[Rfam]
RNA sequence: CGGGGUCAAAUUGACUCUAGUAGGGAGUCCAGCGAAUCGAAGUACGCGACUCCCUAACGGAGUCAGAUUGACUCCUUU
Numbered sequence: 001c002g003g004g005g006u007c008a009a010a011u012u013g014a015c016u017c018u019a020g021u022a023g024g025g026a027g028u029c030c031a032g033c034g035a036a037u038c039g040a041a042g043u044a045c046g047c048g049a050c051u052c053c054c055u056a057a058c059g060g061a062g063u064c065a066g067a068u069u070g071a072c073u074c075c076u077u078u
Stems, first nucleotide, its partner, number of pairs: 011066008021056009
RNA: mir-929 microRNA precursor family
Organism: Ladona fulva